This 135-nucleotide RNA from Nonomuraea longispora belongs to the Rfam family "Group II catalytic intron D1-D4-4". Group II introns are found in rRNA, tRNA and mRNA of organelles in fungi, plants and protists, and also in mRNA in bacteria. The pairing is the family consensus, mapped onto this sequence. The organism belongs to Nonomuraea, within Bacteria.
RNA sequence: CUGCGGGUGGAAGUCCCGUCCGGGUAGACACCGGAGUGCCCGGUAGCAGGCCCCGGUUCGUCGUGGAGACAUGGCGGGCUGAGCGGGGUGUCAAGAGCCUCUUUGGAGGGAGCGAGCACGCGGGCCGUAGCGUCA
Numbered sequence: 001c002u003g004c005g006g007g008u009g010g011a012a013g014u015c016c017c018g019u020c021c022g023g024g025u026a027g028a029c030a031c032c033g034g035a036g037u038g039c040c041c042g043g044u045a046g047c048a049g050g051c052c053c054c055g056g057u058u059c060g061u062c063g064u065g066g067a068g069a070c071a072u073g074g075c076g077g078g079c080u081g082a083g084c085g086g087g088g089u090g091u092c093a094a095g096a097g098c099c100u101c102u103u104u105g106g107a108g109g110g111a112g113c114g115a116g117c118a119c120g121c122g123g124g125c126c127g128u129a130g131c132g133u134c135a
Stems, first nucleotide, its partner, number of pairs: 020043005050089005055080006064071002098109004112128003